[Rfam]
RNA sequence: CUCUUAUUCAGAGCAGUGGAGAUACAAAGGAUCUGUGAAGCUGCGGCAACCCUGUGAAAACGGAAGGUGCCAACCUGAGCGAGCAAUCGAACAAUAAGAG
Numbered sequence: 001c002u003c004u005u006a007u008u009c010a011g012a013g014c015a016g017u018g019g020a021g022a023u024a025c026a027a028a029g030g031a032u033c034u035g036u037g038a039a040g041c042u043g044c045g046g047c048a049a050c051c052c053u054g055u056g057a058a059a060a061c062g063g064a065a066g067g068u069g070c071c072a073a074c075c076u077g078a079g080c081g082a083g084c085a086a087u088c089g090a091a092c093a094a095u096a097a098g099a100g
Base pairs, nucleotide, nucleotide: 001100002099003098004097005096006095007094008093013044014043015042016041017040021033022032023031030076045071046070047069048068050067051066052063053062054061055060080089081088082087